A member of the RNA family "L4-Archaeoglobi ribosomal protein leades" from Halanaeroarchaeum sulfurireducens, 100 nucleotides long. The organism belongs to Halanaeroarchaeum, within Archaea. The literature on the family includes a 2020 paper in BMC Microbiol by Eckert and Weinberg, "Discovery of 20 novel ribosomal leader candidates in bacteria and archaea". The base pairs follow the family's consensus structure, which is taken from published work.
[Rfam]
RNA sequence: CUGACGGGCGCGUUCGGGUCAAUUGCGGAUUGCAACACCCAAUCUCCCUCCACGUCCCGCCCUCGAUGGCGGUCGCGGAGGGGGAACGCGUGACCAUCAG
Numbered sequence: 001c002u003g004a005c006g007g008g009c010g011c012g013u014u015c016g017g018g019u020c021a022a023u024u025g026c027g028g029a030u031u032g033c034a035a036c037a038c039c040c041a042a043u044c045u046c047c048c049u050c051c052a053c054g055u056c057c058c059g060c061c062c063u064c065g066a067u068g069g070c071g072g073u074c075g076c077g078g079a080g081g082g083g084g085a086a087c088g089c090g091u092g093a094c095c096a097u098c099a100g
Stems, first nucleotide, its partner, number of pairs: 001100004008091006016040003023035005043085005051080001053078001054076002